Description
Shown here is a 76-nucleotide sequence from Prolemur simus, a member of the family "mir-320 microRNA precursor family". It scores 85 bits against the family's covariance model. Its family is annotated with RISC complex, negative regulation of gene expression and cellular response to glucose stimulus in the Gene Ontology. On this family, see Berezikov et al., Genome Res 2006: "Many novel mammalian microRNA candidates identified by extensive cloning and RAKE analysis".
[Rfam]
RNA sequence: GAAAUAAGGGGCCUUCUCUUCCCGGUUCUUCCCGGAGUCGGGAAAAGCUGGGUUGAGAGGGCAGUGGAAAAAAAAA
Numbered sequence: 001g002a003a004a005u006a007a008g009g010g011g012c013c014u015u016c017u018c019u020u021c022c023c024g025g026u027u028c029u030u031c032c033c034g035g036a037g038u039c040g041g042g043a044a045a046a047g048c049u050g051g052g053u054u055g056a057g058a059g060g061g062c063a064g065u066g067g068a069a070a071a072a073a074a075a076a
Stems, first nucleotide, its partner, number of pairs: 014059005021052005029044006